RNA: Histone 3' UTR stem-loop
Organism: Clarias magur
RNA sequence: CAAACGGCUCUUCUAAGAGCCACCCACAUUGUCCUUUAAGGAGCA
Numbered sequence: 001c002a003a004a005c006g007g008c009u010c011u012u013c014u015a016a017g018a019g020c021c022a023c024c025c026a027c028a029u030u031g032u033c034c035u036u037u038a039a040g041g042a043g044c045a
Stems, first nucleotide, its partner, number of pairs: 006021006
Dot-bracket structure: .....((((((....))))))........................